The family of this 226-nucleotide RNA from Notoacmeibacter marinus is "permuted transfer-messenger RNA". Taxonomically the source falls in Notoacmeibacter (Bacteria, Pseudomonadota, Alphaproteobacteria, Hyphomicrobiales). A search with the family's covariance model found it, with a score of 148 bits. Rfam's curators write: Bacterial tmRNA, also known as 10Sa RNA or SsrA, is named for its dual tRNA and mRNA-like properties. The family's consensus secondary structure is taken from published work. It is annotated as a non-coding RNA gene.
RNA sequence: GGCGAUAAACGAGCGAUGUAAUAAACCUAUCGGACCCGGGGGCAGUACCCGGCGCCUCCACCACGAACCGCCCGGCGGCGAAUAUGUCAGGGCGGCUGGUGUUGGGGGCGAAACAGGAUCGACGAGGGUGUAAAGAUCGACUUUUUGCCCGGCAUGAUACCACCGUCAUCGGGUCGAACCUAUAGUUGCAAACGACAACUAUGCUGAGGCACGUCUCGCUGCGUAA
Numbered sequence: 001g002g003c004g005a006u007a008a009a010c011g012a013g014c015g016a017u018g019u020a021a022u023a024a025a026c027c028u029a030u031c032g033g034a035c036c037c038g039g040g041g042g043c044a045g046u047a048c049c050c051g052g053c054g055c056c057u058c059c060a061c062c063a064c065g066a067a068c069c070g071c072c073c074g075g076c077g078g079c080g081a082a083u084a085u086g087u088c089a090g091g092g093c094g095g096c097u098g099g100u101g102u103u104g105g106g107g108g109c110g111a112a113a114c115a116g117g118a119u120c121g122a123c124g125a126g127g128g129u130g131u132a133a134a135g136a137u138c139g140a141c142u143u144u145u146u147g148c149c150c151g152g153c154a155u156g157a158u159a160c161c162a163c164c165g166u167c168a169u170c171g172g173g174u175c176g177a178a179c180c181u182a183u184a185g186u187u188g189c190a191a192a193c194g195a196c197a198a199c200u201a202u203g204c205u206g207a208g209g210c211a212c213g214u215c216u217c218g219c220u221g222c223g224u225a226a
Stems, first nucleotide, its partner, number of pairs: 001149005014139004026128003030125003036052005053110007150165003